[Rfam]
RNA sequence: CUCUUAUCAAGAGUGGUGGAGGGACGGGCCCGAUGAAACCCGGCAACCCGCGUUCCGUUUAUCGGGAGCGCAAGGUGCCAAUUCCUGCAGGACGCAAGUCCUGAGAGAUAAGGG
Numbered sequence: 001c002u003c004u005u006a007u008c009a010a011g012a013g014u015g016g017u018g019g020a021g022g023g024a025c026g027g028g029c030c031c032g033a034u035g036a037a038a039c040c041c042g043g044c045a046a047c048c049c050g051c052g053u054u055c056c057g058u059u060u061a062u063c064g065g066g067a068g069c070g071c072a073a074g075g076u077g078c079c080a081a082u083u084c085c086u087g088c089a090g091g092a093c094g095c096a097a098g099u100c101c102u103g104a105g106a107g108a109u110a111a112g113g114g
Base pairs, nucleotide, nucleotide: 001114002113003112004111005110006109007108008107013041015040016039017038021031022030023029025087026086027085028084042079043078044077045076047075048074050071051070052069053068054067055066056065083106088103089102090101091100092099093098